RNA sequence: UGCUAGCGGAUGCUCGCGUCUGCGCCUGCCUAUGGAUGCUGUUACUCGUGUCCCAGGCGGAAGCAGCGCUCG
Numbered sequence: 001u002g003c004u005a006g007c008g009g010a011u012g013c014u015c016g017c018g019u020c021u022g023c024g025c026c027u028g029c030c031u032a033u034g035g036a037u038g039c040u041g042u043u044a045c046u047c048g049u050g051u052c053c054c055a056g057g058c059g060g061a062a063g064c065a066g067c068g069c070u071c072g
Stems, first nucleotide, its partner, number of pairs: 006023007024067002027065003031061001034058001037055002

This 72-nucleotide sequence belongs to the Rfam family "Hepatitis C virus stem-loop SL2531 and SL2549AU". The base pairs follow the family's consensus structure, which was predicted with RNAfold. The family's RNA type in Rfam is cis-regulatory element. The literature on the family includes a 2016 paper in Mol Cell by Pirakitikulr et al., "The Coding Region of the HCV Genome Contains a Network of Regulatory RNA Structures".